RNA sequence: GUGCUGAGAUGAGGCUGAGCCCCUGACCUUGAACCUGGGAUCUUGCCCAUGAUCUCAUGGUGUUGCCGUCAGGGGUAGAUUUCUUGUUAA
Numbered sequence: 001g002u003g004c005u006g007a008g009a010u011g012a013g014g015c016u017g018a019g020c021c022c023c024u025g026a027c028c029u030u031g032a033a034c035c036u037g038g039g040a041u042c043u044u045g046c047c048c049a050u051g052a053u054c055u056c057a058u059g060g061u062g063u064u065g066c067c068g069u070c071a072g073g074g075g076u077a078g079a080u081u082u083c084u085u086g087u088u089a090a
Base pairs, nucleotide, nucleotide: 005089006088007087011085012084013083014082019076020075021074022073023072024071025070026069027068033061034060035059037056038055039054040053041052042051
RNA: mir-3070 microRNA precursor family